[Rfam]
RNA sequence: AGGCAACAUUUUGAAUCAGGAUGAAAUAUUGAUUGGUGUCCAGAAUUGGUCAAUGUGGCCAAAAUUGAGACAUAGGUCAUGUUUUCAUCGCAGUAAACAUUCACAGUGGUGACAAUGAGGCCUGUAACAUUU
Numbered sequence: 001a002g003g004c005a006a007c008a009u010u011u012u013g014a015a016u017c018a019g020g021a022u023g024a025a026a027u028a029u030u031g032a033u034u035g036g037u038g039u040c041c042a043g044a045a046u047u048g049g050u051c052a053a054u055g056u057g058g059c060c061a062a063a064a065u066u067g068a069g070a071c072a073u074a075g076g077u078c079a080u081g082u083u084u085u086c087a088u089c090g091c092a093g094u095a096a097a098c099a100u101u102c103a104c105a106g107u108g109g110u111g112a113c114a115a116u117g118a119g120g121c122c123u124g125u126a127a128c129a130u131u132u
Base pairs, nucleotide, nucleotide: 002060003059004058007055008054009053022042023041025039072125073124074123075122076121086111087110088109089108090107091106

The record is a 132-nucleotide sequence from Octodon degus, which matches "Small nucleolar RNA SNORA1" in Rfam. It is annotated as an H/ACA-box small nucleolar RNA. The base pairs follow the family's consensus structure, which was predicted with PFOLD. Rfam describes the family as follows. ACA1 is a member of the H/ACA class of snoRNA that guide the sites of modification of uridines to pseudouridines.